IMES-1 RNA motif: a 183-nucleotide RNA sequence. The family's RNA type in Rfam is non-coding RNA gene. The sequence is in the family's curated seed alignment. For this family Rfam cites "Exceptional structured noncoding RNAs revealed by bacterial metagenome analysis" (Weinberg et al., Nature, 2009). The family's consensus secondary structure is taken from published work.

Nucleotides: 183
Stems, first nucleotide, its partner, number of pairs: 001044003056169006070104009112133001114131004122152004140160005
Number, partner (000 for none) and nucleotide at each position: 001044u002043c003042c004000g005000a006000g007000c008000c009000g010000a011000a012000a013000a014000c015000a016000a017000c018000u019000c020000g021000a022000g023000a024000c025000g026000a027000a028000a029000g030000a031000a032000a033000g034000c035000a036000g037000a038000g039000a040000g041000a042003g043002g044001a045000u046000g047000a048000u049000u050000a051000g052000a053000g054000u055000a056169c057168g058167a059166a060165g061164g062000g063000u064000g065000a066000a067000a068000g069000c070104u071103c072102u073101a074100g075099a076098a077097a078096a079000a080000a081000a082000a083000g084000g085000u086000a087000c088000c089000a090000a091000a092000a093000a094000a095000g096078u097077u098076u099075u100074c101073u102072a103071g104070a105000c106000c107000a108000c109000c110000a111000a112133g113000a114131u115130c116129u117128a118000a119000a120000a121000a122152g123151a124150a125149g126000a127000g128117u129116a130115g131114a132000u133112c134000a135000a136000g137000g138000a139000g140160c141159c142158u143157g144156a145000a146000a147000g148000u149125c150124u151123u152122c153000a154000a155000g156144u157143c158142a159141g160140g161000a162000c163000a164061c165060u166059u167058u168057c169056g170000a171000a172000c173000u174000c175000g176000a177000a178000a179000c180000u181000a182000a183000a